[Rfam]
RNA sequence: CCACACAGCCCUGUACCCAGAGUCUCCCCAGACAAUGCACCUGGCGCUGUUGGCGAGUGAUUAUAGUGAGUU
Numbered sequence: 001c002c003a004c005a006c007a008g009c010c011c012u013g014u015a016c017c018c019a020g021a022g023u024c025u026c027c028c029c030a031g032a033c034a035a036u037g038c039a040c041c042u043g044g045c046g047c048u049g050u051u052g053g054c055g056a057g058u059g060a061u062u063a064u065a066g067u068g069a070g071u072u
Base pairs, nucleotide, nucleotide: 005050006049007048008047009046017044018043019042020041022033023032024031025030
Rfam assigns this 72-nucleotide sequence from Rattus norvegicus to the family "U1A polyadenylation inhibition element (PIE)".
This family represents the U1A polyadenylation inhibition element (PIE). PIE is a regulatory RNA which is responsible for the regulation of the length of the polyA tail of the U1A pre-mRNA. The PIE is located in the U1A mRNA 3' UTR. PIE adopts a U-shaped structure, with binding sites for a single U1A protein at each bend and when complexed with the two proteins it blocks activity of poly(A) polymerase (PAP), and inhibits its activity.
Taxonomically the source falls in Rattus (Eukaryota, Tetrapoda, Amniota, Euarchontoglires).
The base pairs follow the family's consensus structure, which is taken from published work.